This 361-nucleotide sequence from a Neisseriaceae bacterium belongs to the Rfam family "transfer-messenger RNA".
It scores 198 bits against the family's covariance model.
Taxonomically the source falls in Neisseriaceae (Bacteria, Pseudomonadati, Betaproteobacteria, Neisseriales).
RNA sequence: GGGGGCGACACGGUUUCGACGAGGAUUGCAAAGCAAAGAUGGGCAUACCGAGAUCUCAAACUCUCGUAAAACAUUGAAAACUAAUAGUCGCAAACGACGAAAACUUUGCUCUAGCUGCGUAAAGCUGAGCCGUUGCAACGGUUGGUCAAUGGGCCGUGUGGGGUAAAAUCCACCGCAAUGUCAUAGACAUUGACUGGUUUGUCGUUGGGUUACUUAACUACAAAUAAGAUCUAAGGUAACUAGUUUUGAUCAGCCUGUCUGUCGGCUAAAUCAAAAACGAAAUAAAAUAGACCAGACUAAGUAUGUAGAACACUUUGUAGAGGAUUUUCGGACGGGGGUUCGAUUCCCCCCGCUUCCACCA
Numbered sequence: 001g002g003g004g005g006c007g008a009c010a011c012g013g014u015u016u017c018g019a020c021g022a023g024g025a026u027u028g029c030a031a032a033g034c035a036a037a038g039a040u041g042g043g044c045a046u047a048c049c050g051a052g053a054u055c056u057c058a059a060a061c062u063c064u065c066g067u068a069a070a071a072c073a074u075u076g077a078a079a080a081c082u083a084a085u086a087g088u089c090g091c092a093a094a095c096g097a098c099g100a101a102a103a104c105u106u107u108g109c110u111c112u113a114g115c116u117g118c119g120u121a122a123a124g125c126u127g128a129g130c131c132g133u134u135g136c137a138a139c140g141g142u143u144g145g146u147c148a149a150u151g152g153g154c155c156g157u158g159u160g161g162g163g164u165a166a167a168a169u170c171c172a173c174c175g176c177a178a179u180g181u182c183a184u185a186g187a188c189a190u191u192g193a194c195u196g197g198u199u200u201g202u203c204g205u206u207g208g209g210u211u212a213c214u215u216a217a218c219u220a221c222a223a224a225u226a227a228g229a230u231c232u233a234a235g236g237u238a239a240c241u242a243g244u245u246u247u248g249a250u251c252a253g254c255c256u257g258u259c260u261g262u263c264g265g266c267u268a269a270a271u272c273a274a275a276a277a278c279g280a281a282a283u284a285a286a287a288u289a290g291a292c293c294a295g296a297c298u299a300a301g302u303a304u305g306u307a308g309a310a311c312a313c314u315u316u317g318u319a320g321a322g323g324a325u326u327u328u329c330g331g332a333c334g335g336g337g338g339u340u341c342g343a344u345u346c347c348c349c350c351c352g353c354u355u356c357c358a359c360c361a
Base pairs, nucleotide, nucleotide: 001357002356003355004354005353006352007351020330021329022328023327024326025325026324027323033318034317035316036315037314038313040312041311044305045304046303047302048301049066050065051064052063053062054079056077057076058075059074111129112128114125115124116123131180132179133178134177135176136175138157139156140155141154142153145194146193147192148191149190150189151188197225198224199223200222201221202220204218205217208241209240210239211238212237213236243278244277245275246274247273248272249271250270253266254265255264257297258296259295260294261292262291263290334350335349336348337347338346
Rfam describes the family as follows. Bacterial tmRNA, also known as 10Sa RNA or SsrA, is named for its dual tRNA and mRNA-like properties. The family's consensus secondary structure is taken from published work.